[Rfam]
RNA sequence: GUGUUUUAAUGACAGUCUGACUCGAAACUCCUGAGUGAGAGAGCAGAUUUGAAGCUCAACAC
Numbered sequence: 001g002u003g004u005u006u007u008a009a010u011g012a013c014a015g016u017c018u019g020a021c022u023c024g025a026a027a028c029u030c031c032u033g034a035g036u037g038a039g040a041g042a043g044c045a046g047a048u049u050u051g052a053a054g055c056u057c058a059a060c061a062c
Stems, first nucleotide, its partner, number of pairs: 001062005014049006021043003028039003

This 62-nucleotide sequence from Astyanax mexicanus belongs to the Rfam family "Selenocysteine insertion sequence 1". It scores 35 bits against the family's covariance model. Rfam links the family to the GO term selenocysteine incorporation. The family's RNA type in Rfam is cis-regulatory element.